[Rfam]
This 84-nucleotide sequence from Tetracentron sinense belongs to the Rfam family "Small nucleolar RNA Z159/U59".
RNA sequence: GUCUCUGAUGAUGAUUUAGUGAAAACUUUCGUUCUUCCGAGUAUACACAUGCGGAAUGUUUAUGGAGACCUGAACUGAAGAGAC
Numbered sequence: 001g002u003c004u005c006u007g008a009u010g011a012u013g014a015u016u017u018a019g020u021g022a023a024a025a026c027u028u029u030c031g032u033u034c035u036u037c038c039g040a041g042u043a044u045a046c047a048c049a050u051g052c053g054g055a056a057u058g059u060u061u062a063u064g065g066a067g068a069c070c071u072g073a074a075c076u077g078a079a080g081a082g083a084c
Stems, first nucleotide, its partner, number of pairs: 003082004
The family's consensus secondary structure was predicted with PFOLD. The family has 10 seed sequences and 1,401 matches in Rfam 15.1. On this family, see Chen et al., Nucleic Acids Res 2003: "The high diversity of snoRNAs in plants: identification and comparative study of 120 snoRNA genes from Oryza sativa".